Background:
Shown here is a 64-nucleotide RNA from Novosphingobium marinum, a member of the family "int-alpA RNA". By type it is a small RNA.
[Rfam]
RNA sequence: GCGGCGGCUAGGCUGGCCAGCCGAACAGGGAGACGUCCGCUCCCUGCCGCCGCACCCUUACGGA
Numbered sequence: 001g002c003g004g005c006g007g008c009u010a011g012g013c014u015g016g017c018c019a020g021c022c023g024a025a026c027a028g029g030g031a032g033a034c035g036u037c038c039g040c041u042c043c044c045u046g047c048c049g050c051c052g053c054a055c056c057c058u059u060a061c062g063g064a
Base pairs, nucleotide, nucleotide: 001053002052003051004050005049006048007047008046011022012021013020014019028044029043030042031041032040038063
The family's consensus secondary structure is taken from published work.